RNA: Archaeal signal recognition particle RNA
RNA sequence: CUGGCAGGUAGCUUGGAGGACUCGGCGUCCUCUGUAAUCCCAAACCGUCGUGAGGGGGAAAGCGAAGCCAAGGAAGAGGCAGAGGAAUUGUGGCAAGGGCACAUCCCCUAACGUCGAUUCCUCGUCCUCUGGGACUGGUGGUGGUGUAUUGGGCGAACCGUAGGGUUUGUCCUUGCACCUUAGUUAUGGGUAGUGGUUCAGGCCCGGAAGGGAGCAGACCACCCGUGAACAACCAGUGCUCAGAGGGUUGCGGGGAUGAGGAGGGGGUUGUGUAGUCCAGCUGCAAUUCCUCUGUCGAUUCUUUGGUGUCCUGCCAU
Numbered sequence: 001c002u003g004g005c006a007g008g009u010a011g012c013u014u015g016g017a018g019g020a021c022u023c024g025g026c027g028u029c030c031u032c033u034g035u036a037a038u039c040c041c042a043a044a045c046c047g048u049c050g051u052g053a054g055g056g057g058g059a060a061a062g063c064g065a066a067g068c069c070a071a072g073g074a075a076g077a078g079g080c081a082g083a084g085g086a087a088u089u090g091u092g093g094c095a096a097g098g099g100c101a102c103a104u105c106c107c108c109u110a111a112c113g114u115c116g117a118u119u120c121c122u123c124g125u126c127c128u129c130u131g132g133g134a135c136u137g138g139u140g141g142u143g144g145u146g147u148a149u150u151g152g153g154c155g156a157a158c159c160g161u162a163g164g165g166u167u168u169g170u171c172c173u174u175g176c177a178c179c180u181u182a183g184u185u186a187u188g189g190g191u192a193g194u195g196g197u198u199c200a201g202g203c204c205c206g207g208a209a210g211g212g213a214g215c216a217g218a219c220c221a222c223c224c225g226u227g228a229a230c231a232a233c234c235a236g237u238g239c240u241c242a243g244a245g246g247g248u249u250g251c252g253g254g255g256a257u258g259a260g261g262a263g264g265g266g267g268u269u270g271u272g273u274a275g276u277c278c279a280g281c282u283g284c285a286a287u288u289c290c291u292c293u294g295u296c297g298a299u300u301c302u303u304u305g306g307u308g309u310c311c312u313g314c315c316a317u
Stems, first nucleotide, its partner, number of pairs: 002316007011063004015033007038059004067307009078296004082291001084289001086288009097277001099273005105267005112260001114258001119256007126246008134237005139231002141181001143179006151172009184228007194221005203212003